[Rfam]
Nucleotides: 100
Base pairs, nucleotide, nucleotide: 002027003026004024005023006022007021008020010019011018069096070095071094072092073091074090075089076088079086080085
Number, partner (000 for none) and nucleotide at each position: 001000c002027a003026g004024g005023c006022g007021g008020c009000a010019u011018c012000c013000a014000a015000u016000u017000g018011g019010a020008g021007u022006c023005g024004c025000a026003c027002u028000u029000a030000u031000c032000a033000c034000u035000u036000u037000g038000c039000u040000u041000u042000c043000u044000g045000c046000a047000a048000a049000a050000c051000u052000g053000a054000a055000u056000u057000a058000c059000a060000u061000c062000u063000u064000g065000u066000u067000u068000u069096c070095u071094g072092c073091u074090c075089u076088g077000a078000g079086c080085c081000c082000u083000c084000g085080g086079g087000a088076c089075g090074g091073a092072g093000a094071c095070a096069g097000a098000g099000g100000u